[Rfam]
RNA sequence: GAAGGCAGUGACCACUCGGAAAUAUUCAAGCUCAACAGACCGGAACUAGGCGUUUCUUCAUUUAACUUGGAGAUUCGUUUAUGUGUCGAUAAUCCCGCUGAACUGAGCCUUC
Number, nucleotide and partner (000 for none) at each position: 001g112002a111003a110004g109005g108006c107007a000008g000009u000010g000011a000012c000013c000014a000015c000016u000017c000018g000019g000020a000021a000022a000023u000024a000025u000026u000027c000028a000029a000030g000031c000032u000033c000034a000035a000036c000037a000038g000039a000040c000041c000042g000043g000044a000045a000046c000047u000048a000049g000050g000051c000052g000053u000054u000055u000056c000057u000058u000059c000060a000061u000062u000063u000064a000065a000066c000067u000068u000069g000070g000071a000072g000073a000074u000075u000076c000077g000078u000079u000080u000081a000082u000083g000084u000085g000086u000087c000088g000089a000090u000091a000092a000093u000094c000095c000096c000097g000098c000099u000100g000101a000102a000103c000104u000105g000106a000107g006108c005109c004110u003111u002112c001